The family of this 342-nucleotide part of an RNA from uncultured Fidelibacterota bacterium HF0010_18O13 is "Bacterial large subunit ribosomal RNA". The organism belongs to Fidelibacterota, within Bacteria. On this family, see Cannone et al., BMC Bioinformatics 2002: "The comparative RNA web (CRW) site: an online database of comparative sequence and structure information for ribosomal, intron, and other RNAs".

[Rfam]
RNA sequence: UGAGUGAUUCUAGGUUAAGGAACUAGGCAAAUUGGCCCCGUAACUUCGGGAGAAGGGGUGCCUUUCUUUGAAAGGCCGCAGUGAAAAGGCGCGAGCGACUGUUUAGCAAAAACACAGGUCUCUGCUAAGUCAUAAGACGAAAUAUAGGGACUGACACCUGCCCGGUGCCGGAAGGUUAAAUGGAGAUGUCAAUCUGCUUCGGCGGAUGAAGCUUUGAAAUGAAGCCCCGGUAAACGGCGGCCGUAACUAUAACGGUCCUAAGGUAGCGAAAUUCCUUGUCGGGUAAGUUCCGACCUGCACGAAUGGUGUAACGACUUGCGCACUGUCUCAACCUAGAGCUCA
Numbered sequence: 001u002g003a004g005u006g007a008u009u010c011u012a013g014g015u016u017a018a019g020g021a022a023c024u025a026g027g028c029a030a031a032u033u034g035g036c037c038c039c040g041u042a043a044c045u046u047c048g049g050g051a052g053a054a055g056g057g058g059u060g061c062c063u064u065u066c067u068u069u070g071a072a073a074g075g076c077c078g079c080a081g082u083g084a085a086a087a088g089g090c091g092c093g094a095g096c097g098a099c100u101g102u103u104u105a106g107c108a109a110a111a112a113c114a115c116a117g118g119u120c121u122c123u124g125c126u127a128a129g130u131c132a133u134a135a136g137a138c139g140a141a142a143u144a145u146a147g148g149g150a151c152u153g154a155c156a157c158c159u160g161c162c163c164g165g166u167g168c169c170g171g172a173a174g175g176u177u178a179a180a181u182g183g184a185g186a187u188g189u190c191a192a193u194c195u196g197c198u199u200c201g202g203c204g205g206a207u208g209a210a211g212c213u214u215u216g217a218a219a220u221g222a223a224g225c226c227c228c229g230g231u232a233a234a235c236g237g238c239g240g241c242c243g244u245a246a247c248u249a250u251a252a253c254g255g256u257c258c259u260a261a262g263g264u265a266g267c268g269a270a271a272u273u274c275c276u277u278g279u280c281g282g283g284u285a286a287g288u289u290c291c292g293a294c295c296u297g298c299a300c301g302a303a304u305g306g307u308g309u310a311a312c313g314a315c316u317u318g319c320g321c322a323c324u325g326u327c328u329c330a331a332c333c334u335a336g337a338g339c340u341c342a
Base pairs, nucleotide, nucleotide: 001342002341003340004339009337010336011335012334013333014332015331016330018328019327020326035059036058037057038056039055044049060076061075062074063073064072065071066070077081089321090320091319092318093317094316095315096313097312100114101113102112117152118151119150120149121148122147123146124145129138130137131136155308156307157306158305160238161237162236165235166234167231168230169229170228171227174226175225176224180220181219185215186214188212189211192207193206194205195204196203197202239257240256241255242254243253244252258262268295278294279293280292281291282290283289